[Rfam]
RNA: ROOL RNA
RNA sequence: UAUCUGAAUCAUGCUUACGACCAACUCGAUGAACAAAGCAUGCCAGUGCUUCGAGGUGCAUGGAAUAUUCAGCUCUCUUUAGCAGGGAUACCUGAUAAGGCAGAUCUGCUCACGUUCAGUGAUGUACGUGAGGAAGACGGAAACCGUCAACAACAAACAUGUAUCGCAGAGUUGCUCGCGCCAAAUGGUACGGAGCUUUCGGACGCAACAAUAGACGCUCGCUGUGUGAGAAUAACCCUAAGGGAUGCUGGCUUGGCCGCUGGCACAAUAGAGGGAUUGCCAAUAAUGCGUUUUGCCUUGAAUCGAAGAAAUUCGAGUAUAACGAAAGUGGCCGGUAAUAGUAGCCGAAUGGCAAUUUUUACAAUCUGAAUGGACGGUGAAGUUGCAGGUAAUCAGUCCUGUACAGGUUUUGGCGAAAGCCGGGGCGAGAAGUUAAUGAUCGACGGAUUUUUGGCUCAGACUCGUCUCCCUGUUGACCGAAUGUUGGUGAAGGACAGCAAUGUAUGGCGAAGGCCAGGUCGUAAGUAUGAUUCAGG
Numbered sequence: 001u002a003u004c005u006g007a008a009u010c011a012u013g014c015u016u017a018c019g020a021c022c023a024a025c026u027c028g029a030u031g032a033a034c035a036a037a038g039c040a041u042g043c044c045a046g047u048g049c050u051u052c053g054a055g056g057u058g059c060a061u062g063g064a065a066u067a068u069u070c071a072g073c074u075c076u077c078u079u080u081a082g083c084a085g086g087g088a089u090a091c092c093u094g095a096u097a098a099g100g101c102a103g104a105u106c107u108g109c110u111c112a113c114g115u116u117c118a119g120u121g122a123u124g125u126a127c128g129u130g131a132g133g134a135a136g137a138c139g140g141a142a143a144c145c146g147u148c149a150a151c152a153a154c155a156a157a158c159a160u161g162u163a164u165c166g167c168a169g170a171g172u173u174g175c176u177c178g179c180g181c182c183a184a185a186u187g188g189u190a191c192g193g194a195g196c197u198u199u200c201g202g203a204c205g206c207a208a209c210a211a212u213a214g215a216c217g218c219u220c221g222c223u224g225u226g227u228g229a230g231a232a233u234a235a236c237c238c239u240a241a242g243g244g245a246u247g248c249u250g251g252c253u254u255g256g257c258c259g260c261u262g263g264c265a266c267a268a269u270a271g272a273g274g275g276a277u278u279g280c281c282a283a284u285a286a287u288g289c290g291u292u293u294u295g296c297c298u299u300g301a302a303u304c305g306a307a308g309a310a311a312u313u314c315g316a317g318u319a320u321a322a323c324g325a326a327a328g329u330g331g332c333c334g335g336u337a338a339u340a341g342u343a344g345c346c347g348a349a350u351g352g353c354a355a356u357u358u359u360u361a362c363a364a365u366c367u368g369a370a371u372g373g374a375c376g377g378u379g380a381a382g383u384u385g386c387a388g389g390u391a392a393u394c395a396g397u398c399c400u401g402u403a404c405a406g407g408u409u410u411u412g413g414c415g416a417a418a419g420c421c422g423g424g425g426c427g428a429g430a431a432g433u434u435a436a437u438g439a440u441c442g443a444c445g446g447a448u449u450u451u452u453g454g455c456u457c458a459g460a461c462u463c464g465u466c467u468c469c470c471u472g473u474u475g476a477c478c479g480a481a482u483g484u485u486g487g488u489g490a491a492g493g494a495c496a497g498c499a500a501u502g503u504a505u506g507g508c509g510a511a512g513g514c515c516a517g518g519u520c521g522u523a524a525g526u527a528u529g530a531u532u533c534a535g536g
Stems, first nucleotide, its partner, number of pairs: 008532001015525002022518001025055005037050005057163006071107002074104003078099004083094004109132007117124002136148005173497001176494002182487001184485001187484001188478001191334003195329007202292006218230004236275004246265006254282004293355005303316005338383001344378004365460004388400002404472003407421001412420001423469003429462001432456001434453003438449004505516004